The record is a 100-nucleotide RNA sequence from Apostasia shenzhenica, which matches "Small nucleolar RNA Z103" in Rfam. A reference for the family is Chen et al. (2003), "The high diversity of snoRNAs in plants: identification and comparative study of 120 snoRNA genes from Oryza sativa", Nucleic Acids Res. It is annotated as a C/D-box small nucleolar RNA. A search with the family's covariance model found it, with a score of 67 bits. The base pairs follow the family's consensus structure, which was predicted with PFOLD.
RNA sequence: GUUAAAAAUGAUGAUCCUUUCCCCGUAUGAUCGACUCUGAUUAUGCUUUGCAUUUGCGUAAUUUCUCUUUAGAGAAAUCGUGCCAGUGGAUCUGAUUAGC
Numbered sequence: 001g002u003u004a005a006a007a008a009u010g011a012u013g014a015u016c017c018u019u020u021c022c023c024c025g026u027a028u029g030a031u032c033g034a035c036u037c038u039g040a041u042u043a044u045g046c047u048u049u050g051c052a053u054u055u056g057c058g059u060a061a062u063u064u065c066u067c068u069u070u071a072g073a074g075a076a077a078u079c080g081u082g083c084c085a086g087u088g089g090a091u092c093u094g095a096u097u098a099g100c
Stems, first nucleotide, its partner, number of pairs: 001100005